[Rfam]
RNA sequence: CUGCAAAAAAAAAAAGAAUCACCUUCCCUGUGGAGGCCUGGUGUGCAAUGGCUACAAACGUAGCCUCCUGGGCAGUGUACAGCCUGUUGCUUAUACAGGUUGCCCUAAGGGACCUUGGAGACAGCC
Numbered sequence: 001c002u003g004c005a006a007a008a009a010a011a012a013a014a015a016g017a018a019u020c021a022c023c024u025u026c027c028c029u030g031u032g033g034a035g036g037c038c039u040g041g042u043g044u045g046c047a048a049u050g051g052c053u054a055c056a057a058a059c060g061u062a063g064c065c066u067c068c069u070g071g072g073c074a075g076u077g078u079a080c081a082g083c084c085u086g087u088u089g090c091u092u093a094u095a096c097a098g099g100u101u102g103c104c105c106u107a108a109g110g111g112a113c114c115u116u117g118g119a120g121a122c123a124g125c126c
Base pairs, nucleotide, nucleotide: 002047003046004045005044018042019041020040021039022036023035024034025033071114072113080102081101082100083099084098085097